Rfam assigns this 178-nucleotide RNA from Sphaerimonospora thailandensis to the family "c-di-AMP riboswitch aptamer (ydaO/yuaA leader)". It scores 75 bits against the family's covariance model.
[Rfam]
RNA sequence: UCCGAUGAUCUGCCGAGUCCGUGCAGUCAGGAGGCACGGAGCCGGGGAACCAACGACCCCUCGAGUCCAGGGGGUCCGGGGUGAAUCGGCGCGUCAGGUGAACACGACCUGGGCGCCGUAGGGCGACUUCCCCGCCCGAACCCGUCAGCUAACCCGGUAGGCGUGAGCGGAAGACCCU
Numbered sequence: 001u002c003c004g005a006u007g008a009u010c011u012g013c014c015g016a017g018u019c020c021g022u023g024c025a026g027u028c029a030g031g032a033g034g035c036a037c038g039g040a041g042c043c044g045g046g047g048a049a050c051c052a053a054c055g056a057c058c059c060c061u062c063g064a065g066u067c068c069a070g071g072g073g074g075u076c077c078g079g080g081g082u083g084a085a086u087c088g089g090c091g092c093g094u095c096a097g098g099u100g101a102a103c104a105c106g107a108c109c110u111g112g113g114c115g116c117c118g119u120a121g122g123g124c125g126a127c128u129u130c131c132c133c134g135c136c137c138g139a140a141c142c143c144g145u146c147a148g149c150u151a152a153c154c155c156g157g158u159a160g161g162c163g164u165g166a167g168c169g170g171a172a173g174a175c176c177c178u
Stems, first nucleotide, its partner, number of pairs: 011163004018040007041158006051078001079143003087118006121137004